The family of this 163-nucleotide RNA from Swaminathania salitolerans is "FMN riboswitch aptamer (RFN element)". A search with the family's covariance model found it, with a score of 106 bits. NCBI's taxonomy places the organism under Bacteria, Pseudomonadota, Alphaproteobacteria, Acetobacterales, Swaminathania. Rfam's curators write: The RFN element is a highly conserved domain that is found frequently in the 5'-untranslated regions of prokaryotic mRNAs that encode for flavin mononucleotide (FMN) biosynthesis and transport proteins.
[Rfam]
RNA sequence: UGACGUUCUCGGGGCGGGGUGAAACUCCCCACCGGCGGUAGGUGAUAUGGGAGGCGACUUCCGUUCAUGAGCCCGCGAGCGCCUGUGGCGACCAGCCUCAGGGUCAGCAGAUCCGGUCGAAUUCCGGAGCCGACGGUUAUAGUCCGGAUGAGAGAGGACGGAC
Numbered sequence: 001u002g003a004c005g006u007u008c009u010c011g012g013g014g015c016g017g018g019g020u021g022a023a024a025c026u027c028c029c030c031a032c033c034g035g036c037g038g039u040a041g042g043u044g045a046u047a048u049g050g051g052a053g054g055c056g057a058c059u060u061c062c063g064u065u066c067a068u069g070a071g072c073c074c075g076c077g078a079g080c081g082c083c084u085g086u087g088g089c090g091a092c093c094a095g096c097c098u099c100a101g102g103g104u105c106a107g108c109a110g111a112u113c114c115g116g117u118c119g120a121a122u123u124c125c126g127g128a129g130c131c132g133a134c135g136g137u138u139a140u141a142g143u144c145c146g147g148a149u150g151a152g153a154g155a156g157g158a159c160g161g162a163c
Stems, first nucleotide, its partner, number of pairs: 004160007017029003031143002033132002035076004071130002079108002112128005134146003